The record is a 77-nucleotide RNA from Python bivittatus, which matches "mir-16 microRNA precursor family" in Rfam. NCBI's taxonomy places the organism under Eukaryota, Opisthokonta, Craniata, Amniota, Python. Rfam links the family to the GO terms RISC complex and miRNA-mediated post-transcriptional gene silencing. Pairs were carried over by alignment from the consensus structure, which was predicted with PFOLD.
RNA sequence: GCUUGACUAAAGCAGCAAAGCAAUACUGGAGGGCAGAGCAUCUAAACUCCAGUAUUUACGUGCUGCUAAAGCAGAGC
Numbered sequence: 001g002c003u004u005g006a007c008u009a010a011a012g013c014a015g016c017a018a019a020g021c022a023a024u025a026c027u028g029g030a031g032g033g034c035a036g037a038g039c040a041u042c043u044a045a046a047c048u049c050c051a052g053u054a055u056u057u058a059c060g061u062g063c064u065g066c067u068a069a070a071g072c073a074g075a076g077c
Stems, first nucleotide, its partner, number of pairs: 001077003007071001011067007020057001022056008